Notes
A member of the RNA family "mir-9193 microRNA precursor family" from Myotis myotis, 74 nucleotides long. Taxonomically the source falls in Myotis (Eukaryota, Deuterostomia, Laurasiatheria, Yangochiroptera). It scores 63 bits against the family's covariance model.
RNA sequence: GAAGAGGGGAGGGUGUCCUUCAGCCUGGAUUGUGAGAGGGCACAGGCCAGGCCAAGGGACCCCACCAGUGCAUG
Numbered sequence: 001g002a003a004g005a006g007g008g009g010a011g012g013g014u015g016u017c018c019u020u021c022a023g024c025c026u027g028g029a030u031u032g033u034g035a036g037a038g039g040g041c042a043c044a045g046g047c048c049a050g051g052c053c054a055a056g057g058g059a060c061c062c063c064a065c066c067a068g069u070g071c072a073u074g
Stems, first nucleotide, its partner, number of pairs: 004071001006069001009066001012063002015060006023052003027048002030045005
Dot-bracket structure: ...(.(..(..((.((((((..(((.((.(((((......))))).)).)))..)))))).))..)..).)...